RNA sequence: UUGUUUGCAGGUGCAGCAGCAUCAAGAUUCACACACAAGGUCUACCUCUGUGGGGGAAUGUUUUGGAGUUGAGAAUCUUGAUGAUGCUGCAUCAGCAAUAGA
Numbered sequence: 001u002u003g004u005u006u007g008c009a010g011g012u013g014c015a016g017c018a019g020c021a022u023c024a025a026g027a028u029u030c031a032c033a034c035a036c037a038a039g040g041u042c043u044a045c046c047u048c049u050g051u052g053g054g055g056g057a058a059u060g061u062u063u064u065g066g067a068g069u070u071g072a073g074a075a076u077c078u079u080g081a082u083g084a085u086g087c088u089g090c091a092u093c094a095g096c097a098a099u100a101g102a
Stems, first nucleotide, its partner, number of pairs: 010093009020083011032071002
Dot-bracket structure: .........(((((((((.(((((((((((.((....................................)).))))))))))).))))))))).........
The record is a 102-nucleotide sequence from Vigna radiata, which matches "mir-172 microRNA precursor family" in Rfam. It scores 84 bits against the family's covariance model. The family's consensus secondary structure was predicted with PFOLD. The family has 11 seed sequences and 2,076 matches in Rfam 15.1. mir-172 has been experimentally verified in Arabidopsis thaliana. This family is thought to target mRNAs coding for APETALA2-like transcription factors. The mature sequence is excised from the 3' arm of the hairpin. Its family is annotated with miRNA-mediated post-transcriptional gene silencing and RISC complex in the Gene Ontology.